A member of the RNA family "mir-393 microRNA precursor family" from Vigna angularis, 103 nucleotides long. A search with the family's covariance model found it, with a score of 84 bits. Gene Ontology terms of the family: miRNA-mediated post-transcriptional gene silencing and RISC complex.
[Rfam]
RNA sequence: GGUGGACACUUCCAAAGGGAUCGCAUUGAUCUAAGUCUUGCAUUCCCAUGCAGUUCUGGUUUUUCACUGAUUUCGAUCAUGCGAUCCCUUCGGAAUUUUCCAU
Dot-bracket structure: .(((((.(.((((.(((((((.((((.((((...........................................)))))))).))))))).)))).).)))))

Lineage of the source: Eukaryota > Streptophyta > Euphyllophyta > Papilionoideae > Vigna angularis. Pairs were carried over by alignment from the consensus structure.